[Rfam]
RNA sequence: ACAGUCUGGAAAUCACUUGGGGUCUUCUGUGGCCCCUGGUGUGAUAACUGUGCCGACAGCAGAGGGAGCAUUAAACUCACUGCCCACGGUAAAGUGUGGGGAGUGAUAUAUGGCUAGGCUU
Numbered sequence: 001a002c003a004g005u006c007u008g009g010a011a012a013u014c015a016c017u018u019g020g021g022g023u024c025u026u027c028u029g030u031g032g033c034c035c036c037u038g039g040u041g042u043g044a045u046a047a048c049u050g051u052g053c054c055g056a057c058a059g060c061a062g063a064g065g066g067a068g069c070a071u072u073a074a075a076c077u078c079a080c081u082g083c084c085c086a087c088g089g090u091a092a093a094g095u096g097u098g099g100g101g102a103g104u105g106a107u108a109u110a111u112g113g114c115u116a117g118g119c120u121u
Base pairs, nucleotide, nucleotide: 006050008048010045014041015040016039021034022033023032024031067120068119069118071116077106078105079104080103081102085098086097087096